[Rfam]
RNA sequence: AGUUCUUCAGGUAACUGGCGAAAGACGUGGAUAAACCACGAGGGAGCCUGAAGAGCAAGUAAACGUUAACCUAUCAGUCGUUCGCCUGGGCUGUGGCA
Numbered sequence: 001a002g003u004u005c006u007u008c009a010g011g012u013a014a015c016u017g018g019c020g021a022a023a024g025a026c027g028u029g030g031a032u033a034a035a036c037c038a039c040g041a042g043g044g045a046g047c048c049u050g051a052a053g054a055g056c057a058a059g060u061a062a063a064c065g066u067u068a069a070c071c072u073a074u075c076a077g078u079c080g081u082u083c084g085c086c087u088g089g090g091c092u093g094u095g096g097c098a
Base pairs, nucleotide, nucleotide: 003055004054005053006052007051008050009049010048011047012046015043016042017086018085019084020083021082027039028038029037030036075093076092077091078090079089
Dot-bracket structure: ..((((((((((..(([[[[[.....((((.....))))..))..))))))))))...................(((((..]]]]]..))))).....
The family of this 98-nucleotide RNA from Reticulibacter mediterranei is "ZMP/ZTP riboswitch aptamer (pfl RNA motif)". The family's consensus secondary structure is taken from published work. The match comes from Rfam's covariance-model search (62 bits).